[Rfam]
RNA: Small nucleolar RNA SNORA29
Organism: Myotis myotis
RNA sequence: UUCCCCUUUUGACUGCCACAUUUUCUCCCAAUAGAUUCUAGUGGCUAGGCUUAUGGGAUAGAGUAACAUCGCCAUGGUCUGAAGGGGGAGGAUUUAUGUCCCACUUCUGUAUGAAAUGGCUAAACACACAAAA
Numbered sequence: 001u002u003c004c005c006c007u008u009u010u011g012a013c014u015g016c017c018a019c020a021u022u023u024u025c026u027c028c029c030a031a032u033a034g035a036u037u038c039u040a041g042u043g044g045c046u047a048g049g050c051u052u053a054u055g056g057g058a059u060a061g062a063g064u065a066a067c068a069u070c071g072c073c074a075u076g077g078u079c080u081g082a083a084g085g086g087g088g089a090g091g092a093u094u095u096a097u098g099u100c101c102c103a104c105u106u107c108u109g110u111a112u113g114a115a116a117u118g119g120c121u122a123a124a125c126a127c128a129c130a131a132a133a
Stems, first nucleotide, its partner, number of pairs: 004057003016044004071120004089108004